Notes
This 36-nucleotide sequence from Kordia sp. SMS9 belongs to the Rfam family "DUF805b RNA". It is annotated as a cis-regulatory element. Pairs were carried over by alignment from the consensus structure, which is taken from published work. The family is grouped with related families in Rfam's "DUF805 clan". Taxonomically the source falls in Kordia (Bacteria, Flavobacteriia, Flavobacteriales, Flavobacteriaceae).
RNA sequence: AAGGCACACGCUGAAAAGCCUAAAAUAGAGUAAGCA
Dot-bracket structure: .((((....[[[.....))))...........]]].